[Rfam]
RNA sequence: CCUGCACCUGGACAGAAAGACCCUAUGAAGCUUUACUGUAGCCUGGAAUGGUGUUCGGGCUUUGCUUGCGCAGAAUAGGUGGGAGGCAAUGAUUCACUCCUUGUGGGGAGUGAGGAGCCGCAAUGUGAGAUACCACUCUGGCGAGGCUAGAAUUCUAACCCGCGACCGUUAUCCGGUCGGGGAACAGUUUCAGGUGGGCAGUUUGACUGGGGCGGUCGCCUCCUAAAGUGUAACGGAGGCGCGCAAAGGUUCCCUCAGGCUGGUUGGAAAUCAGCCGCAGAGUGUAAAGGCAAAAGGGAGCUUGACUGCAAGAGUGACAACUCGCGCAGGGUGGAAACACGGCCUUAGUGAUCCGACGGUAGUGAGUGGAAGCGCCGUCGCUCAACGGAUAAAAGUUACUCUAGGGAUAACAGGCUGAUCUCCCCCAAGAGUCCACAUCGACGGGGAGGUUUGGCACCUCGAUGUCGGCUCAUCGCAACCUGGGGCGGAAGUACGUCCCAAGGGUUGGGCUGUUCGCCCAUUAAAGCGGUACGUGAGCUGGGUUCAGAACGUCGUGAGACAGUUCGGUCCAUAUCCGGUGCAGGCGUU
Numbered sequence: 001c002c003u004g005c006a007c008c009u010g011g012a013c014a015g016a017a018a019g020a021c022c023c024u025a026u027g028a029a030g031c032u033u034u035a036c037u038g039u040a041g042c043c044u045g046g047a048a049u050g051g052u053g054u055u056c057g058g059g060c061u062u063u064g065c066u067u068g069c070g071c072a073g074a075a076u077a078g079g080u081g082g083g084a085g086g087c088a089a090u091g092a093u094u095c096a097c098u099c100c101u102u103g104u105g106g107g108g109a110g111u112g113a114g115g116a117g118c119c120g121c122a123a124u125g126u127g128a129g130a131u132a133c134c135a136c137u138c139u140g141g142c143g144a145g146g147c148u149a150g151a152a153u154u155c156u157a158a159c160c161c162g163c164g165a166c167c168g169u170u171a172u173c174c175g176g177u178c179g180g181g182g183a184a185c186a187g188u189u190u191c192a193g194g195u196g197g198g199c200a201g202u203u204u205g206a207c208u209g210g211g212g213c214g215g216u217c218g219c220c221u222c223c224u225a226a227a228g229u230g231u232a233a234c235g236g237a238g239g240c241g242c243g244c245a246a247a248g249g250u251u252c253c254c255u256c257a258g259g260c261u262g263g264u265u266g267g268a269a270a271u272c273a274g275c276c277g278c279a280g281a282g283u284g285u286a287a288a289g290g291c292a293a294a295a296g297g298g299a300g301c302u303u304g305a306c307u308g309c310a311a312g313a314g315u316g317a318c319a320a321c322u323c324g325c326g327c328a329g330g331g332u333g334g335a336a337a338c339a340c341g342g343c344c345u346u347a348g349u350g351a352u353c354c355g356a357c358g359g360u361a362g363u364g365a366g367u368g369g370a371a372g373c374g375c376c377g378u379c380g381c382u383c384a385a386c387g388g389a390u391a392a393a394a395g396u397u398a399c400u401c402u403a404g405g406g407a408u409a410a411c412a413g414g415c416u417g418a419u420c421u422c423c424c425c426c427a428a429g430a431g432u433c434c435a436c437a438u439c440g441a442c443g444g445g446g447a448g449g450u451u452u453g454g455c456a457c458c459u460c461g462a463u464g465u466c467g468g469c470u471c472a473u474c475g476c477a478a479c480c481u482g483g484g485g486c487g488g489a490a491g492u493a494c495g496u497c498c499c500a501a502g503g504g505u506u507g508g509g510c511u512g513u514u515c516g517c518c519c520a521u522u523a524a525a526g527c528g529g530u531a532c533g534u535g536a537g538c539u540g541g542g543u544u545c546a547g548a549a550c551g552u553c554g555u556g557a558g559a560c561a562g563u564u565c566g567g568u569c570c571a572u573a574u575c576c577g578g579u580g581c582a583g584g585c586g587u588u
Stems, first nucleotide, its partner, number of pairs: 001584008010576003015570001022405004027401002029397005035202004042194007051155001053153004058148009068138001078137005085119003094113008159182003163179006205217004218240006241386001243343002249301006255281002258276006282291002306329004312323003331340003354380007362373002414455003418452001419449007429439002466541001467539004471533001472530005479504002482499006506520005547565004551560003